[Rfam]
Bacterial small signal recognition particle RNA: a 99-nucleotide RNA from Lichenicoccus roseus.
The signal recognition particle (SRP) is a universally conserved ribonucleoprotein involved in the co-translational targeting of proteins to membranes.
For this family Rfam cites "SRPDB: Signal Recognition Particle Database" (Rosenblad et al., Nucleic Acids Res, 2003).
The base pairs follow the family's consensus structure, which is taken from published work.
Lineage of the source: Bacteria > Pseudomonadati > Pseudomonadota > Acetobacterales > Lichenicoccus.

RNA sequence: GGGAGGUCGGCGGCGGACGAGCGCCUUGCCAACCCGGUCAGGUCCGGAAGGAAGCAGCCGCAGCGAGUUUCCGCACGGGUCGUUGUUCGGCCUCCCACC
Numbered sequence: 001g002g003g004a005g006g007u008c009g010g011c012g013g014c015g016g017a018c019g020a021g022c023g024c025c026u027u028g029c030c031a032a033c034c035c036g037g038u039c040a041g042g043u044c045c046g047g048a049a050g051g052a053a054g055c056a057g058c059c060g061c062a063g064c065g066a067g068u069u070u071c072c073g074c075a076c077g078g079g080u081c082g083u084u085g086u087u088c089g090g091c092c093u094c095c096c097a098c099c
Stems, first nucleotide, its partner, number of pairs: 004093005010086006018077002021074003025067005035060004043052003